[Rfam]
RNA sequence: UAUACUAAAUGAGCUUGGUCAAAGACAGCUGGCGCCGCAAGGCUUAAAUGGCGAUUUGUUCGCCGCCCGCCGAGGUCAACACAGACAUGUUUAUUAUCAUAUUUGAUUAUGUUUUCUGUGUACCCUCCCUGUGUCUUUGCACCGGGAGGGUACUUUUAUUUUACAGGA
Numbered sequence: 001u002a003u004a005c006u007a008a009a010u011g012a013g014c015u016u017g018g019u020c021a022a023a024g025a026c027a028g029c030u031g032g033c034g035c036c037g038c039a040a041g042g043c044u045u046a047a048a049u050g051g052c053g054a055u056u057u058g059u060u061c062g063c064c065g066c067c068c069g070c071c072g073a074g075g076u077c078a079a080c081a082c083a084g085a086c087a088u089g090u091u092u093a094u095u096a097u098c099a100u101a102u103u104u105g106a107u108u109a110u111g112u113u114u115u116c117u118g119u120g121u122a123c124c125c126u127c128c129c130u131g132u133g134u135c136u137u138u139g140c141a142c143c144g145g146g147a148g149g150g151u152a153c154u155u156u157u158a159u160u161u162u163a164c165a166g167g168a
Stems, first nucleotide, its partner, number of pairs: 028070002031067003034043003120153010